[Rfam]
Nucleotides: 125
Base pairs, nucleotide, nucleotide: 005035006034007033008032009031013030014029015028016027017026018025046076051071052070053069054068055067056066057065091118093116094115095114096113097112098111099110100109101108
Number, partner (000 for none) and nucleotide at each position: 001000u002000a003000a004000g005035c006034c007033u008032u009031u010000a011000a012000u013030u014029c015028a016027g017026u018025c019000c020000c021000g022000u023000g024000a025018g026017g027016c028015u029014g030013a031009g032008a033007a034006g035005g036000a037000a038000c039000g040000g041000u042000u043000a044000a045000u046076a047000a048000u049000u050000u051071a052070u053069u054068g055067u056066a057065u058000a059000u060000u061000u062000a063000a064000a065057a066056u067055a068054c069053a070052a071051u072000u073000u074000u075000g076046u077000u078000a079000c080000u081000a082000u083000g084000a085000a086000c087000u088000g089000u090000u091118a092000c093116c094115c095114u096113c097112u098111c099110g100109c101108c102000a103000a104000u105000a106000u107000c108101g109100g110099u111098g112097a113096g114095a115094g116093g117000u118091u119000u120000u121000u122000u123000a124000u125000u